[Rfam]
RNA sequence: AGAGGCUGCAAGUUUGAGGCUGUAGCAGAAGUGCCUGUGAUGUGGCCAUGUCAGAUUCCAAUGAAUCUGCAAAUUCUUCU
Dot-bracket structure: ............(....((((..[[.[[[[(((.......))))))))...(((((((....)))))))....]]]].]]
Shown here is an 80-nucleotide RNA from Crocodylus porosus, a member of the family "Mammalian CPEB3 ribozyme". NCBI's taxonomy places the organism under Eukaryota, Craniata, Vertebrata, Crocodylidae, Crocodylus. The match comes from Rfam's covariance-model search (35 bits). Its family is annotated with RNA nuclease activity in the Gene Ontology.